RNA sequence: CGUGCGCCGUCGCCUAAUCCACGGACCUGGCCUUCGGGUUGGGUCGGGGAGCCGGGGAACCACCGUUCCUUGGGGUGAAUCGGAACGUCUUGGGCCGGAUCGGCCCAGGUCGGACCGUAGGAGACCUUCCUGCUCCGAACCCGUCAGCUAACCCGGUAGGCGAGAGGGAAGGAAAGG
Numbered sequence: 001c002g003u004g005c006g007c008c009g010u011c012g013c014c015u016a017a018u019c020c021a022c023g024g025a026c027c028u029g030g031c032c033u034u035c036g037g038g039u040u041g042g043g044u045c046g047g048g049g050a051g052c053c054g055g056g057g058a059a060c061c062a063c064c065g066u067u068c069c070u071u072g073g074g075g076u077g078a079a080u081c082g083g084a085a086c087g088u089c090u091u092g093g094g095c096c097g098g099a100u101c102g103g104c105c106c107a108g109g110u111c112g113g114a115c116c117g118u119a120g121g122a123g124a125c126c127u128u129c130c131u132g133c134u135c136c137g138a139a140c141c142c143g144u145c146a147g148c149u150a151a152c153c154c155g156g157u158a159g160g161c162g163a164g165a166g167g168g169a170a171g172g173a174a175a176g177g
Base pairs, nucleotide, nucleotide: 011162012161013160014159018050019049020048051157052156053155054154055153056152061072062071073142074141075140081117082116083115120136121135122134123133
A member of the RNA family "c-di-AMP riboswitch aptamer (ydaO/yuaA leader)" from Kitasatospora kifunensis, 177 nucleotides long. The base pairs follow the family's consensus structure. The organism belongs to Kitasatospora, within Bacteria. Rfam links the family to the GO terms cyclic-di-AMP binding and regulation of gene expression.